[Rfam]
RNA sequence: CUUUUAUCAAGAGCUGGUGGAGGGACAAGCCCUAUGAAACCCGGCAACCGGUUGACCUGUGUCAAUACGGUGCUAAUUCUUGCAGCUACGUGCUGAGGGAUAAGAG
Numbered sequence: 001c002u003u004u005u006a007u008c009a010a011g012a013g014c015u016g017g018u019g020g021a022g023g024g025a026c027a028a029g030c031c032c033u034a035u036g037a038a039a040c041c042c043g044g045c046a047a048c049c050g051g052u053u054g055a056c057c058u059g060u061g062u063c064a065a066u067a068c069g070g071u072g073c074u075a076a077u078u079c080u081u082g083c084a085g086c087u088a089c090g091u092g093c094u095g096a097g098g099g100a101u102a103a104g105a106g
Stems, first nucleotide, its partner, number of pairs: 001106008013042001016041003022032003026082004043074004048070002051066004078098001083095004